The family of this 87-nucleotide RNA sequence from Musca domestica is "mir-46/mir-47/mir-281 microRNA precursor family". The source organism's lineage runs through Eukaryota, Allotriocarida, Endopterygota, Cyclorrhapha and Musca.

RNA sequence: GAGUUACGCAUAUGAAGAGAGCUAUCUGUCGACAGUCAAGUUUUUCUUUAUUACUGUCAUGGAAUUGCUCUCUUUAUAUAGUAUUCG
Dot-bracket structure: .............(((((.(((..((((..(((.((................)).))).))))...))).)))))............
Numbered sequence: 001g002a003g004u005u006a007c008g009c010a011u012a013u014g015a016a017g018a019g020a021g022c023u024a025u026c027u028g029u030c031g032a033c034a035g036u037c038a039a040g041u042u043u044u045u046c047u048u049u050a051u052u053a054c055u056g057u058c059a060u061g062g063a064a065u066u067g068c069u070c071u072c073u074u075u076a077u078a079u080a081g082u083a084u085u086c087g
Stems, first nucleotide, its partner, number of pairs: 014075005020069003025063004031058003035054002